[Rfam]
RNA: MIR5070 microRNA precursor family
RNA sequence: CAGGUACCCUUUGAUCCUACUUAGUUUAACCAAAUGAACUAAAAUUUUAAAAUGACACAACUUUUUGAAAAACUAGUUCAUUUGUUUGAACUAAGUAAGGUCAAAAGGUAUGCUG
Numbered sequence: 001c002a003g004g005u006a007c008c009c010u011u012u013g014a015u016c017c018u019a020c021u022u023a024g025u026u027u028a029a030c031c032a033a034a035u036g037a038a039c040u041a042a043a044a045u046u047u048u049a050a051a052a053u054g055a056c057a058c059a060a061c062u063u064u065u066u067g068a069a070a071a072a073c074u075a076g077u078u079c080a081u082u083u084g085u086u087u088g089a090a091c092u093a094a095g096u097a098a099g100g101u102c103a104a105a106a107g108g109u110a111u112g113c114u115g
Stems, first nucleotide, its partner, number of pairs: 002114002004111005010105007018097012031084011